The record is a 131-nucleotide RNA from Pantoea agglomerans, which matches "RtT RNA" in Rfam.
The organism belongs to Pantoea, within Bacteria.
The family's consensus secondary structure is taken from published work.
This family represents a bacterial cis-regulatory element known as RtT RNA. The exact function of RtT is unknown although it is thought that it may be involved in changing the cellular response in relation to amino acid starvation.
The literature on the family includes a 1991 paper in Nucleic Acids Res by Bosl and Kersten, "A novel RNA product of the tyrT operon of Escherichia coli".
[Rfam]
RNA sequence: UUUUCGUCUGCAGAAAAGAGGAUGAGGACCUCCGAAGGAGGUUUGAGCCGAGCGUAGCGAGACAACGUUGCUUCAGCAACGGCCCCGCAGGGCGCUGCUCGCAGAGCAGAGUAAUCCUCUCUCGCCGACCA
Numbered sequence: 001u002u003u004u005c006g007u008c009u010g011c012a013g014a015a016a017a018g019a020g021g022a023u024g025a026g027g028a029c030c031u032c033c034g035a036a037g038g039a040g041g042u043u044u045g046a047g048c049c050g051a052g053c054g055u056a057g058c059g060a061g062a063c064a065a066c067g068u069u070g071c072u073u074c075a076g077c078a079a080c081g082g083c084c085c086c087g088c089a090g091g092g093c094g095c096u097g098c099u100c101g102c103a104g105a106g107c108a109g110a111g112u113a114a115u116c117c118u119c120u121c122u123c124g125c126c127g128a129c130c131a
Stems, first nucleotide, its partner, number of pairs: 015122001017120005023114001033094002042089001044087001045085001049059002066081006